Record summary: This 212-nucleotide RNA sequence from Triplophysa tibetana belongs to the Rfam family "Small nucleolar RNA U3". The base pairs follow the family's consensus structure, which is taken from published work. Rfam's curators write: Small nucleolar RNAs (snoRNAs) are involved in the processing and modification of rRNA in the nucleolus.
[Rfam]
RNA sequence: AGGACUAUACUUUCAGGGAUCAUUUCUAUAGUUAUUUACUUGGAAAUGUGUUUCGUGAGUGUUUGUUCCCAAACCACGAUGAUGAGCUGAGAUGUUUCUUUUAGAGCAUGAAUCGGCACCUAGUUGUGACUCGAUUCACAUGCUUGUGCAGUUGAUGAAUGUUCUUUAUUGCUUUUUGGCGAUAAUGAGGAAAGACGCAUGAUCUUAGUGGU
Numbered sequence: 001a002g003g004a005c006u007a008u009a010c011u012u013u014c015a016g017g018g019a020u021c022a023u024u025u026c027u028a029u030a031g032u033u034a035u036u037u038a039c040u041u042g043g044a045a046a047u048g049u050g051u052u053u054c055g056u057g058a059g060u061g062u063u064u065g066u067u068c069c070c071a072a073a074c075c076a077c078g079a080u081g082a083u084g085a086g087c088u089g090a091g092a093u094g095u096u097u098c099u100u101u102u103a104g105a106g107c108a109u110g111a112a113u114c115g116g117c118a119c120c121u122a123g124u125u126g127u128g129a130c131u132c133g134a135u136u137c138a139c140a141u142g143c144u145u146g147u148g149c150a151g152u153u154g155a156u157g158a159a160u161g162u163u164c165u166u167u168a169u170u171g172c173u174u175u176u177u178g179g180c181g182a183u184a185a186u187g188a189g190g191a192a193a194g195a196c197g198c199a200u201g202a203u204c205u206u207a208g209u210g211g212u
Stems, first nucleotide, its partner, number of pairs: 001041003009032003015027004049065002054061001073212005092200004097195006106162003116149004122144003125140005166185008